Rfam assigns this 52-nucleotide RNA sequence from Solanum commersonii to the family "MIR1886 microRNA precursor family".
[Rfam]
RNA sequence: UGAGAUGGAAUCAACGUUUGGAUAUGCGAUUUUACGUUAAUUUCAUCUCGUG
Numbered sequence: 001u002g003a004g005a006u007g008g009a010a011u012c013a014a015c016g017u018u019u020g021g022a023u024a025u026g027c028g029a030u031u032u033u034a035c036g037u038u039a040a041u042u043u044c045a046u047c048u049c050g051u052g
Stems, first nucleotide, its partner, number of pairs: 001050011013038005018029003